[Rfam]
Nucleotides: 048
Base pairs, nucleotide, nucleotide: 004031005030006029007028008027009026010025013022014021015047016046017045019044020043
Number, partner (000 for none) and nucleotide at each position: 001000u002000u003000c004031c005030u006029g007028c008027c009026a010025c011000a012000a013022c014021g015047g016046c017045u018000u019044c020043c021014u022013g023000g024000c025010g026009u027008g028007g029006c030005g031004g032000g033000g034000u035000a036000a037000a038000c039000c040000a041000a042000u043020g044019g045017a046016g047015c048000a